[Rfam]
Record summary
DUF3800-VI RNA: a 53-nucleotide sequence. The base pairs follow the family's consensus structure, which is taken from published work. Rfam classes the family as a cis-regulatory element.
RNA sequence: GGGUUGGGAGCGCUGCCUUUAUGCGGUGCGUCGGGUUUUAACCCGCCCGGCUC
Numbered sequence: 001g002g003g004u005u006g007g008g009a010g011c012g013c014u015g016c017c018u019u020u021a022u023g024c025g026g027u028g029c030g031u032c033g034g035g036u037u038u039u040a041a042c043c044c045g046c047c048c049g050g051c052u053c
Stems, first nucleotide, its partner, number of pairs: 001053008010029007032045005